[Rfam]
RNA: MIR825 microRNA precursor family
Organism: Arabidopsis thaliana
RNA sequence: UAUAGAAUUCACUAGUUGAUUCCAUCGACUCGUUCAAGCACCAGCUCGAAGAAGCUUAGCUAAUUUAUCUUAGAAAAUAAUGAAAAAGCUAUGCUUCUCAAGAAGGUGCAUGAACAAGUUGAUGUAUAUUUUGAUGUGUA
Dot-bracket structure: .(((....(((..(((......((((((((.(((((.(((((..((.((.(((((.(((((.........................))))).))))))).))..))))).))))).))))))))...))).)))..))).